[Rfam]
Nucleotides: 097
Stems, first nucleotide, its partner, number of pairs: 001097005010084010020073003026057002029055008040090003044086001061070003
Number, partner (000 for none) and nucleotide at each position: 001097a002096g003095c004094a005093g006000a007000g008000u009000a010084a011083a012082a013081a014080u015079a016078u017077g018076u019075g020073c021072g022071u023000u024000a025000a026057g027056u028000g029055u030054u031053u032052c033051a034050g035049a036048c037000a038000c039000g040090g041089g042088g043000a044086g045000u046000u047000g048036g049035u050034c051033u052032g053031a054030a055029a056027a057026c058000g059000a060000a061070a062069a063068g064000a065000g066000u067000u068063c069062u070061u071022g072021c073020g074000a075019u076018a077017c078016a079015u080014a081013u082012u083011u084010u085000g086044c087000a088042u089041c090040c091000c092000g093005c094004u095003g096002u097001u
The record is a 97-nucleotide RNA from Faecalicoccus pleomorphus, which matches "THF (Tetrahydrofolate) riboswitch aptamer" in Rfam.
The literature on the family includes a 2011 paper in Proc Natl Acad Sci U S A by Huang et al., "Long-range pseudoknot interactions dictate the regulatory response in the tetrahydrofolate riboswitch".
Its family is annotated with tetrahydrofolate metabolic process in the Gene Ontology.
The base pairs follow the family's consensus structure, which is taken from published work.
Tetrahydrofolate (THF) riboswitch was first reported for Ames et al. as an RNA motif in 5' untranslated (5'-UTR)regions of folate transport and biosynthesis genes in Firmicutes genomes.
The match comes from Rfam's covariance-model search (91 bits).